[Rfam]
Rfam assigns this 76-nucleotide sequence from Myotis lucifugus to the family "mir-9229 microRNA precursor family". NCBI's taxonomy places the organism under Eukaryota, Opisthokonta, Sarcopterygii, Laurasiatheria, Myotis. Its family is annotated with miRNA-mediated post-transcriptional gene silencing and RISC complex in the Gene Ontology.
RNA sequence: GAGAUACCCUUAUGGAGUAGCACUUGCUUCAUUGGGGCUUUGGUGCUCACUGAGCCUGCCCCUUGAGUGUGUCACU
Numbered sequence: 001g002a003g004a005u006a007c008c009c010u011u012a013u014g015g016a017g018u019a020g021c022a023c024u025u026g027c028u029u030c031a032u033u034g035g036g037g038c039u040u041u042g043g044u045g046c047u048c049a050c051u052g053a054g055c056c057u058g059c060c061c062c063u064u065g066a067g068u069g070u071g072u073c074a075c076u
Base pairs, nucleotide, nucleotide: 001075003073004072005071006070007069009067010066011065012064014062015061017059018058019057023054029053030052031051033049034048035047036046037044038043